Shown here is a 105-nucleotide sequence from Canis lupus, a member of the family "mir-8834 microRNA precursor family". Rfam links the family to the GO terms RISC complex and miRNA-mediated post-transcriptional gene silencing. It scores 76 bits against the family's covariance model.
RNA sequence: AGGAGCAACAGCCCCAGUGGCGUGGCCAGCUCUGGAAACCUGGGUUAACUCUGGCAGGAACUAAGGAGCUUUCUCGUCUGCAGGGCCUGGAGGCUCGGGCGAGGG
Numbered sequence: 001a002g003g004a005g006c007a008a009c010a011g012c013c014c015c016a017g018u019g020g021c022g023u024g025g026c027c028a029g030c031u032c033u034g035g036a037a038a039c040c041u042g043g044g045u046u047a048a049c050u051c052u053g054g055c056a057g058g059a060a061c062u063a064a065g066g067a068g069c070u071u072u073c074u075c076g077u078c079u080g081c082a083g084g085g086c087c088u089g090g091a092g093g094c095u096c097g098g099g100c101g102a103g104g105g
Base pairs, nucleotide, nucleotide: 003096004095005094006093009089010088011087012085013084014083019078020077021076022075024073025072028070029069030068031067032066033065036062039058040057041056042055